Shown here is a 133-nucleotide sequence from Carlito syrichta, a member of the family "Small nucleolar RNA SNORA68".

RNA sequence: UAGGCUCCUCAACCCAAGAACUGCUGUUUCCUGUAACAGUGGUUUCAACAGGGGUGCACACAGCAAGUGGAUCUCGUCGCCUUUGGGGGACCAGGGCUGUGCCCCUCCAAGUGAAUUCAGAGGUUCCACAUCC
Numbered sequence: 001u002a003g004g005c006u007c008c009u010c011a012a013c014c015c016a017a018g019a020a021c022u023g024c025u026g027u028u029u030c031c032u033g034u035a036a037c038a039g040u041g042g043u044u045u046c047a048a049c050a051g052g053g054g055u056g057c058a059c060a061c062a063g064c065a066a067g068u069g070g071a072u073c074u075c076g077u078c079g080c081c082u083u084u085g086g087g088g089g090a091c092c093a094g095g096g097c098u099g100u101g102c103c104c105c106u107c108c109a110a111g112u113g114a115a116u117u118c119a120g121a122g123g124u125u126c127c128a129c130a131u132c133c
Stems, first nucleotide, its partner, number of pairs: 004057002007054003019044010069126007081111003085107005091101001
The family's consensus secondary structure was predicted with PFOLD. Rfam links the family to the GO terms nucleolus and RNA processing. The match comes from Rfam's covariance-model search (114 bits). It is annotated as an H/ACA-box small nucleolar RNA.